[Rfam]
RNA: Small nucleolar SNORD12/SNORD106
RNA sequence: AAUGUGGUUAAUGAUGUACACUUUUUUCCCCGUCUUAUCGACUUUGGUGAAAAAACCCCAACAAAUUUAGCCAGUUGUAUCUGAAACCACUUG
Numbered sequence: 001a002a003u004g005u006g007g008u009u010a011a012u013g014a015u016g017u018a019c020a021c022u023u024u025u026u027u028c029c030c031c032g033u034c035u036u037a038u039c040g041a042c043u044u045u046g047g048u049g050a051a052a053a054a055a056c057c058c059c060a061a062c063a064a065a066u067u068u069a070g071c072c073a074g075u076u077g078u079a080u081c082u083g084a085a086a087c088c089a090c091u092u093g
Stems, first nucleotide, its partner, number of pairs: 002092001004090006